About this RNA
This 60-nucleotide sequence from Mus spicilegus belongs to the Rfam family "U7 small nuclear RNA". Animal histone pre-mRNAs are spliced by a different mechanism than nuclear pre-mRNAs and self-splicing introns. The organism belongs to Mus, within Eukaryota. The base pairs follow the family's consensus structure, which was predicted with PFOLD.

RNA sequence: AGCUGUUACAGCUCUAGAAUUUUUUCUAACAAGUUUUCUGACUUUGGUUAGAAAACCCAA
Numbered sequence: 001a002g003c004u005g006u007u008a009c010a011g012c013u014c015u016a017g018a019a020u021u022u023u024u025u026c027u028a029a030c031a032a033g034u035u036u037u038c039u040g041a042c043u044u045u046g047g048u049u050a051g052a053a054a055a056c057c058c059a060a
Stems, first nucleotide, its partner, number of pairs: 033056010